The record is a 368-nucleotide RNA from Mycobacterium talmoniae, which matches "transfer-messenger RNA" in Rfam. For this family Rfam cites "Phylogenetic analysis of tmRNA secondary structure" (Williams and Bartel, RNA, 1996).

[Rfam]
Nucleotides: 368
Base pairs, nucleotide, nucleotide: 001364002363003362004361005360006359007358019337020336022334023333025332026331027330028329033324034323035322036321037320038319043312044311045310046309047308048069049068050067051066052065056082057081058080059079123140124139125135126134147183148182149181150180151179152178154174155173156172157171158170163195164194165193166192167191201229202228203227204226205225206224207223208222209221212245213244214243215242216241217240247285248284249283250282251281253280254279256277260276261275264304266302267301272298273297341357342356343355344354345353
Number, partner (000 for none) and nucleotide at each position: 001364g002363g003362g004361g005360c006359u007358g008000a009000a010000c011000g012000g013000u014000u015000u016000c017000g018000a019337c020336u021000u022334c023333g024000c025332g026331c027330a028329u029000c030000g031000a032000a033324u034323c035322a036321a037320g038319g039000g040000a041000a042000g043312c044311g045310u046309g047308c048069c049068g050067g051066u052065g053000c054000a055000g056082g057081c058080a059079a060000g061000a062000g063000a064000c065052c066051a067050c068049c069048g070000u071000a072000a073000g074000c075000g076000u077000c078000g079059u080058u081057g082056c083000a084000a085000c086000c087000a088000a089000u090000u091000a092000a093000g094000c095000g096000c097000c098000g099000a100000u101000u102000c103000u104000c105000a106000u107000c108000a109000g110000c111000g112000c113000g114000a115000c116000u117000a118000c119000g120000c121000c122000c123140u124139c125135g126134c127000u128000g129000c130000c131000u132000a133000a134126g135125c136000g137000a138000c139124g140123g141000c142000u143000g144000g145000u146000c147183u148182g149181u150180c151179a152178g153000a154174c155173c156172g157171g158170g159000a160000g161000c162000g163195c164194c165193c166192u167191c168000g169000g170158c171157c172156c173155g174154g175000a176000c177000c178152c179151u180150g181149g182148c183147a184000u185000c186000a187000g188000c189000u190000a191167g192166a193165g194164g195163g196000a197000u198000c199000c200000a201229c202228c203227g204226u205225u206224a207223c208222g209221u210000c211000c212245g213244g214243u215242c216241g217240c218000g219000g220000g221209a222208c223207g224206u225205a226204a227203c228202g229201g230000g231000a232000c233000a234000a235000c236000c237000a238000c239000a240217g241216c242215g243214a244213c245212u246000g247285g248284g249283a250282u251281c252000g253280u254279c255000a256277u257000c258000u259000c260276g261275g262000c263000u264304g265000g266302u267301u268000c269000g270000c271000g272298u273297g274000a275261c276260c277256g278000g279254g280253a281251g282250g283249u284248c285247c286000g287000a288000g289000u290000a291000g292000a293000g294000g295000c296000a297273c298272a299000g300000c301267g302266a303000a304264c305000u306000g307000c308047g309046c310045a311044c312043g313000g314000a315000g316000a317000a318000g319038c320037c321036u322035u323034g324033a325000g326000g327000g328000a329028a330027u331026g332025c333023c334022g335000u336020a337019g338000g339000a340000c341357c342356c343355g344354g345353g346000u347000u348000c349000g350000a351000u352000u353345c354344c355343c356342g357341g358007c359006a360005g361004c362003u363002c364001c365000a366000c367000c368000g
Rfam classes the family as a non-coding RNA gene. The match comes from Rfam's covariance-model search (136 bits).